[Rfam]
RNA sequence: AAUUAAAAAUUUCAUCCAUUUUUACUGUUAAAAACUUAUGUGGUUGAUGAAAUAACUAGACAGUAACAUGUGUUGUGUCAGGUGUACCCCAUGCUGAAGUACAGAAAUCAAUUUUUAAUAGCAAAAAUGGAUAAAAAUUUUAACG
Numbered sequence: 001a002a003u004u005a006a007a008a009a010u011u012u013c014a015u016c017c018a019u020u021u022u023u024a025c026u027g028u029u030a031a032a033a034a035c036u037u038a039u040g041u042g043g044u045u046g047a048u049g050a051a052a053u054a055a056c057u058a059g060a061c062a063g064u065a066a067c068a069u070g071u072g073u074u075g076u077g078u079c080a081g082g083u084g085u086a087c088c089c090c091a092u093g094c095u096g097a098a099g100u101a102c103a104g105a106a107a108u109c110a111a112u113u114u115u116u117a118a119u120a121g122c123a124a125a126a127a128u129g130g131a132u133a134a135a136a137a138u139u140u141u142a143a144c145g
Base pairs, nucleotide, nucleotide: 003143004142005141006140007139008138010136011135012134014132015131016130018128019127020126021125022124023123025121026120028118029117030116031115032114033113

A member of the RNA family "MIR7502 microRNA precursor family" from Gossypium lobatum, 145 nucleotides long. The organism belongs to Gossypium, within Eukaryota. The base pairs follow the family's consensus structure, which was predicted with RNAalifold.